[Rfam]
RNA: Selenocysteine insertion sequence 1
RNA sequence: GCCAGACCAUGACGACUUGUACAGAAACCCACCCAGUGGGCUGUGCAAGUCUGAGCUCCCCUGGU
Numbered sequence: 001g002c003c004a005g006a007c008c009a010u011g012a013c014g015a016c017u018u019g020u021a022c023a024g025a026a027a028c029c030c031a032c033c034c035a036g037u038g039g040g041c042u043g044u045g046c047a048a049g050u051c052u053g054a055g056c057u058c059c060c061c062u063g064g065u
Stems, first nucleotide, its partner, number of pairs: 001065005014051010029039003